[Rfam]
RNA: TPP riboswitch aptamer (THI element)
RNA sequence: UACCAACGCUAGGGGUGCCGAAAGGCUGAGAAAGGGCAUGCCGAGAAGGCUGCUCUUAACCCUUUGAACCUGAUGUGGUUAGUACCACCGUAGGGAAGCGUUGUGGAUAUAUC
Numbered sequence: 001u002a003c004c005a006a007c008g009c010u011a012g013g014g015g016u017g018c019c020g021a022a023a024g025g026c027u028g029a030g031a032a033a034g035g036g037c038a039u040g041c042c043g044a045g046a047a048g049g050c051u052g053c054u055c056u057u058a059a060c061c062c063u064u065u066g067a068a069c070c071u072g073a074u075g076u077g078g079u080u081a082g083u084a085c086c087a088c089c090g091u092a093g094g095g096a097a098g099c100g101u102u103g104u105g106g107a108u109a110u111a112u113c
Stems, first nucleotide, its partner, number of pairs: 006101005011063004017026003033056005069094004075088004
Dot-bracket structure: .....(((((((((..(((....)))......(((((..............)))))...)))).....((((..((((......))))..))))..)))))............